[Rfam]
RNA sequence: GACCGGGUCCUGUGCGACCGAACCCCGUGAACCGGGUCAGGGCCGGAAGGCAGCAGCCCUCAGCGGAGCGUUCGGAGUGCCGCAGACCGCCUGGUCGUC
Numbered sequence: 001g002a003c004c005g006g007g008u009c010c011u012g013u014g015c016g017a018c019c020g021a022a023c024c025c026c027g028u029g030a031a032c033c034g035g036g037u038c039a040g041g042g043c044c045g046g047a048a049g050g051c052a053g054c055a056g057c058c059c060u061c062a063g064c065g066g067a068g069c070g071u072u073c074g075g076a077g078u079g080c081c082g083c084a085g086a087c088c089g090c091c092u093g094g095u096c097g098u099c
Stems, first nucleotide, its partner, number of pairs: 004093005010085005015077001018075005023068001025066004034059004042051003
The family of this 99-nucleotide RNA sequence from Candidatus Neomicrothrix parvicella is "Bacterial small signal recognition particle RNA". Its family is annotated with SRP-dependent cotranslational protein targeting to membrane, signal sequence recognition and signal recognition particle, plasma membrane targeting in the Gene Ontology. Rfam classes the family as a non-coding RNA gene. The base pairs follow the family's consensus structure, which is taken from published work. The literature on the family includes a 2002 paper in Nucleic Acids Res by Regalia et al., "Prediction of signal recognition particle RNA genes". The signal recognition particle (SRP) is a universally conserved ribonucleoprotein involved in the co-translational targeting of proteins to membranes.